[Rfam]
RNA: Small nucleolar RNA SNORA57
RNA sequence: CCUCCUUUUCUUGGCAGGGACCGGACUUGUGGACCCGCUCCCCGUAAAGUACGGAGGAAGAGGGAAAGCACUCUGGCACCCUCGGCGUCAUGUCUCUGGUGCCGGUGGCUUCCCACUCGCUGGUUCUAUCUUCAAGCGCCGAGACACCU
Numbered sequence: 001c002c003u004c005c006u007u008u009u010c011u012u013g014g015c016a017g018g019g020a021c022c023g024g025a026c027u028u029g030u031g032g033a034c035c036c037g038c039u040c041c042c043c044g045u046a047a048a049g050u051a052c053g054g055a056g057g058a059a060g061a062g063g064g065a066a067a068g069c070a071c072u073c074u075g076g077c078a079c080c081c082u083c084g085g086c087g088u089c090a091u092g093u094c095u096c097u098g099g100u101g102c103c104g105g106u107g108g109c110u111u112c113c114c115a116c117u118c119g120c121u122g123g124u125u126c127u128a129u130c131u132u133c134a135a136g137c138g139c140c141g142a143g144a145c146a147c148c149u
Base pairs, nucleotide, nucleotide: 001057002056003055004054005053015044017042018041019040020039022037023036024035083141084140085139086138087137088136102123103122104121105120106119107118108117